[Rfam]
RNA sequence: UAUAAUAUAGGUGAUGGAGUUCGCCUUUAACCAUUGUGUAAAUACAAUUAAUGACUCCUGCUCAGAU
Numbered sequence: 001u002a003u004a005a006u007a008u009a010g011g012u013g014a015u016g017g018a019g020u021u022c023g024c025c026u027u028u029a030a031c032c033a034u035u036g037u038g039u040a041a042a043u044a045c046a047a048u049u050a051a052u053g054a055c056u057c058c059u060g061c062u063c064a065g066a067u
Stems, first nucleotide, its partner, number of pairs: 010025004016058006033048004